[Rfam]
RNA: Ma3 gene ribosomal frameshift signal
Organism: Sciurus carolinensis
RNA sequence: AGGAGAUGAGGAUGGGGCUGGGGAGUUGAGCCACCCCAAGCCCUUCUUGGGCGAAUAGGCCCA
Number, nucleotide and partner (000 for none) at each position: 001a000002g000003g000004a000005g000006a000007u000008g000009a000010g000011g000012a000013u000014g044015g043016g042017g041018c040019u039020g000021g037022g036023g035024a000025g000026u000027u000028g062029a000030g060031c059032c058033a000034c000035c023036c022037c021038a000039a019040g018041c017042c016043c015044u014045u000046c000047u000048u000049g000050g000051g000052c000053g000054a000055a000056u000057a000058g032059g031060c030061c000062c028063a000